[Rfam]
The family of this 100-nucleotide RNA from Yoonia litorea is "Glycine riboswitch aptamer". About the family: This family represents the bacterial glycine riboswitch. Lineage of the source: Bacteria > Pseudomonadati > Pseudomonadota > Alphaproteobacteria > Yoonia. The pairing is the family consensus, mapped onto this sequence.
RNA sequence: ACACGCCGACCGGGAGAGAAUGCUCCCUUCAGUCGCAGGGUUCAUCGCCGAAGGAGCAACCGCCCCGGUCACUCUCAGGCAAAAGGACCGGUUGGGGUGC
Numbered sequence: 001a002c003a004c005g006c007c008g009a010c011c012g013g014g015a016g017a018g019a020a021u022g023c024u025c026c027c028u029u030c031a032g033u034c035g036c037a038g039g040g041u042u043c044a045u046c047g048c049c050g051a052a053g054g055a056g057c058a059a060c061c062g063c064c065c066c067g068g069u070c071a072c073u074c075u076c077a078g079g080c081a082a083a084a085g086g087a088c089c090g091g092u093u094g095g096g097g098u099g100c
Stems, first nucleotide, its partner, number of pairs: 006095008020045003047080003050076002054074003061068001